[Rfam]
Rfam assigns this 154-nucleotide sequence from Amborella trichopoda to the family "MIR8565 microRNA precursor family". NCBI's taxonomy places the organism under Eukaryota, Streptophyta, Tracheophyta, Spermatophyta, Amborella. The base pairs follow the family's consensus structure, which was predicted with RNAalifold. It scores 148 bits against the family's covariance model.
RNA sequence: CUCACACCUAUGUGUGUAGGACUCCAAAGGAUCAUCAUUAAAGUUGGCAUGGAUUUCUAGAAAAGUUAUCACAUGGGUGUGAGACUUGACUUUUCUAGAGAUCCAUACCAAUUUUAAUAGUAAUCCUUUGGGGUCCUACACACAUGGGUGGGAG
Numbered sequence: 001c002u003c004a005c006a007c008c009u010a011u012g013u014g015u016g017u018a019g020g021a022c023u024c025c026a027a028a029g030g031a032u033c034a035u036c037a038u039u040a041a042a043g044u045u046g047g048c049a050u051g052g053a054u055u056u057c058u059a060g061a062a063a064a065g066u067u068a069u070c071a072c073a074u075g076g077g078u079g080u081g082a083g084a085c086u087u088g089a090c091u092u093u094u095c096u097a098g099a100g101a102u103c104c105a106u107a108c109c110a111a112u113u114u115u116a117a118u119a120g121u122a123a124u125c126c127u128u129u130g131g132g133g134u135c136c137u138a139c140a141c142a143c144a145u146g147g148g149u150g151g152g153a154g
Stems, first nucleotide, its partner, number of pairs: 002153002005150009015140014030125003034121002037118011049106020069082005